RNA sequence: AAGCGAAGGACCCAGCAGGGAAGCGAGUAUGCUCAUGAAAUGAGGCUUCUCUAACAAUUUAUUUAACCUUCGUAGAUUGAGUCUCCAAGGAUUCUUUGAUGCUCUGCUGUUUUUUCAGCUAUCGUCUUGUGUUCUUGGUGUAUAGUU
Numbered sequence: 001a002a003g004c005g006a007a008g009g010a011c012c013c014a015g016c017a018g019g020g021a022a023g024c025g026a027g028u029a030u031g032c033u034c035a036u037g038a039a040a041u042g043a044g045g046c047u048u049c050u051c052u053a054a055c056a057a058u059u060u061a062u063u064u065a066a067c068c069u070u071c072g073u074a075g076a077u078u079g080a081g082u083c084u085c086c087a088a089g090g091a092u093u094c095u096u097u098g099a100u101g102c103u104c105u106g107c108u109g110u111u112u113u114u115u116c117a118g119c120u121a122u123c124g125u126c127u128u129g130u131g132u133u134c135u136u137g138g139u140g141u142a143u144a145g146u147u
Base pairs, nucleotide, nucleotide: 003073004072005071006070007069008068009067011020012019013018025051026050027049032044033043034042035041036040085138086137087136088135089134090133098126099125101123103121106119107118108117
About this RNA
This 147-nucleotide sequence from Eutrema salsugineum belongs to the Rfam family "Small nucleolar RNA snoR145". Taxonomically the source falls in Eutrema (Eukaryota, Streptophytina, Embryophyta, rosids). Its family is annotated with RNA processing and nucleolus in the Gene Ontology. A reference for the family is Chen and Wu (2009), "Mining small RNA sequencing data: a new approach to identify small nucleolar RNAs in Arabidopsis", Nucleic Acids Res. Rfam classes the family as an H/ACA-box small nucleolar RNA.